A member of the RNA family "6S / SsrS RNA" from Faecalibacterium prausnitzii, 204 nucleotides long. It scores 60 bits against the family's covariance model. Lineage of the source: Bacteria > Bacillati > Clostridia > Eubacteriales > Faecalibacterium prausnitzii. By type it is a non-coding RNA gene.
Nucleotides: 204
Base pairs, nucleotide, nucleotide: 005199006198007197008196009195010194011193012192013191014190017188018187036175037174038173040171041170057152058151059150061148062147063146064145066143071141073139074138075137076136077135083129084128088125089124090123091122
Number, partner (000 for none) and nucleotide at each position: 001000g002000a003000c004000u005199u006198c007197c008196u009195g010194c011193c012192c013191g014190g015000c016000g017188c018187g019000a020000u021000u022000u023000g024000u025000u026000g027000c028000g029000g030000u031000u032000u033000a034000u035000a036175u037174g038173a039000u040171c041170c042000u043000a044000c045000u046000a047000a048000u049000c050000a051000u052000u053000c054000a055000a056000c057152g058151g059150g060000a061148g062147c063146u064145u065000g066143g067000a068000g069000u070000u071141c072000g073139u074138c075137g076136g077135u078000g079000g080000a081000u082000u083129g084128c085000a086000g087000a088125c089124c090123u091122c092000c093000c094000c095000g096000u097000c098000a099000u100000g101000g102000g103000u104000c105000g106000a107000c108000c109000a110000u111000g112000g113000a114000g115000g116000c117000u118000c119000g120000a121000u122091g123090a124089g125088g126000a127000a128084g129083c130000g131000c132000g133000a134000a135077a136076c137075c138074g139073g140000a141071g142000a143066c144000a145064g146063a147062g148061c149000a150059c151058c152057c153000a154000c155000c156000u157000g158000u159000c160000c161000g162000c163000a164000a165000g166000g167000g168000u169000a170041g171040g172000u173038u174037u175036g176000a177000u178000u179000g180000c181000c182000g183000c184000a185000g186000a187018c188017g189000a190014c191013c192012g193011g194010g195009c196008g197007g198006g199005a200000u201000u202000c203000u204000u